[Rfam]
RNA sequence: UUGACCUCUUCUAUUUUUUUUCACUCACAGAGGGUGGGACAGGAGGCAGAGUGAAGGAAAAGGUCAA
Numbered sequence: 001u002u003g004a005c006c007u008c009u010u011c012u013a014u015u016u017u018u019u020u021u022c023a024c025u026c027a028c029a030g031a032g033g034g035u036g037g038g039a040c041a042g043g044a045g046g047c048a049g050a051g052u053g054a055a056g057g058a059a060a061a062g063g064u065c066a067a
Base pairs, nucleotide, nucleotide: 001067002066003065004064005063006062007061009059010058011057012056021054022053023052024051025050026049
This 67-nucleotide sequence from Microtus ochrogaster belongs to the Rfam family "XIST 3' intron conserved motif".
Pairs were carried over by alignment from the consensus structure, which is taken from published work.
It scores 82 bits against the family's covariance model.